[Rfam]
Shown here is a 327-nucleotide sequence from Alligator mississippiensis, a member of the family "7SK RNA". The family's consensus secondary structure is taken from published work. NCBI's taxonomy places the organism under Eukaryota, Bilateria, Vertebrata, Crocodylia, Alligator. 7SK was discovered as an abundant small nuclear RNA in the mid-70s but a possible function has only recently been suggested. Two independent studies have found that 7SK RNA binds the CDK9/cyclin T complex (known as elongation factor P-TEFb).
RNA sequence: AGGUGAGGGUGAUUUGUCUGUGACAUGUGUUGCCCCAUUGAUCACCAGGCUUGAUUUGACUGAUCUGGCUGGCUAGGUGGGUGUCUACUUCCUCCCUCACCACUCCAUAUGAGACCCUCUUGAAGCUGUGUGCUUGGUCAAAGAGGAUGACCUUCCAAAACUAGAGAAGUGCCGUUCUUCAGUCAAGGGUAUAUUAUAGCUACUCUUCCAUGGUAAGACCUCCAAACAAGCUCAAGGUCCAUUUGUAGGAGAAAGUAGGGUGGUCAAGCUUCUAAGACUCCAGACACAUCUAAAUGAGGUGUUGCAUGUGGCAGUCUGCCUUUCUUU
Numbered sequence: 001a002g003g004u005g006a007g008g009g010u011g012a013u014u015u016g017u018c019u020g021u022g023a024c025a026u027g028u029g030u031u032g033c034c035c036c037a038u039u040g041a042u043c044a045c046c047a048g049g050c051u052u053g054a055u056u057u058g059a060c061u062g063a064u065c066u067g068g069c070u071g072g073c074u075a076g077g078u079g080g081g082u083g084u085c086u087a088c089u090u091c092c093u094c095c096c097u098c099a100c101c102a103c104u105c106c107a108u109a110u111g112a113g114a115c116c117c118u119c120u121u122g123a124a125g126c127u128g129u130g131u132g133c134u135u136g137g138u139c140a141a142a143g144a145g146g147a148u149g150a151c152c153u154u155c156c157a158a159a160a161c162u163a164g165a166g167a168a169g170u171g172c173c174g175u176u177c178u179u180c181a182g183u184c185a186a187g188g189g190u191a192u193a194u195u196a197u198a199g200c201u202a203c204u205c206u207u208c209c210a211u212g213g214u215a216a217g218a219c220c221u222c223c224a225a226a227c228a229a230g231c232u233c234a235a236g237g238u239c240c241a242u243u244u245g246u247a248g249g250a251g252a253a254a255g256u257a258g259g260g261u262g263g264u265c266a267a268g269c270u271u272c273u274a275a276g277a278c279u280c281c282a283g284a285c286a287c288a289u290c291u292a293a294a295u296g297a298g299g300u301g302u303u304g305c306a307u308g309u310g311g312c313a314g315u316c317u318g319c320c321u322u323u324c325u326u327u
Base pairs, nucleotide, nucleotide: 001104003100004099005098006097007096008095009094011091012090016088017087022085023084024083025082026081028079029078030077031076033072034071035068036067037066040065041064042063043062046058114170115169117166118165119164120137121136122135123134125133126132138160145156146155147154199269200268201267205263206262208260209259211257212256220251221250222249223248226246227245228244229243230242292327293326294325296322297321298320299319300318301315302314303313304312305311